[Rfam]
RNA: PyrR binding site
Organism: Priestia veravalensis
RNA sequence: AGAACCUUUAAAGACAGUCCCGUGAGGCUGAGAAGGAAACGUACAAAACGUGGGUUUUUUCUACCCUUUUCUACAGAUAAACGUAGGCGUUUUAAUCCUCUCACCUUAGCGGUAGAGGAUUUUUUUAU
Numbered sequence: 001a002g003a004a005c006c007u008u009u010a011a012a013g014a015c016a017g018u019c020c021c022g023u024g025a026g027g028c029u030g031a032g033a034a035g036g037a038a039a040c041g042u043a044c045a046a047a048a049c050g051u052g053g054g055u056u057u058u059u060u061c062u063a064c065c066c067u068u069u070u071c072u073a074c075a076g077a078u079a080a081a082c083g084u085a086g087g088c089g090u091u092u093u094a095a096u097c098c099u100c101u102c103a104c105c106u107u108a109g110c111g112g113u114a115g116a117g118g119a120u121u122u123u124u125u126u127a128u
Base pairs, nucleotide, nucleotide: 005036006035007034008033009032015030016029017028018027019026058089060087061086062085063084064083067080068079070077071076094121095120096119097118098117099116100115101114103113104112105111
Dot-bracket structure: ....(((((.....(((((......))))).))))).....................(.(((((..((.((....)).))..))))).)....((((((((.(((.....))))))))))).......